A member of the RNA family "skipping-rope RNA", 97 nucleotides long. It is one of the family's seed sequences. Rfam classes the family as a small RNA.
[Rfam]
RNA sequence: GUUAUUUGAGGUGGAAAAUUUCGUGCCAUCCACACGCCGCUGGUACCGACAGGGGAAACCCGAGAGAUGCAGGAGAACGCCACGCCUGCCAAAUAAC
Numbered sequence: 001g002u003u004a005u006u007u008g009a010g011g012u013g014g015a016a017a018a019u020u021u022c023g024u025g026c027c028a029u030c031c032a033c034a035c036g037c038c039g040c041u042g043g044u045a046c047c048g049a050c051a052g053g054g055g056a057a058a059c060c061c062g063a064g065a066g067a068u069g070c071a072g073g074a075g076a077a078c079g080c081c082a083c084g085c086c087u088g089c090c091a092a093a094u095a096a097c
Stems, first nucleotide, its partner, number of pairs: 001097008011033005025080002035064001037055002069089005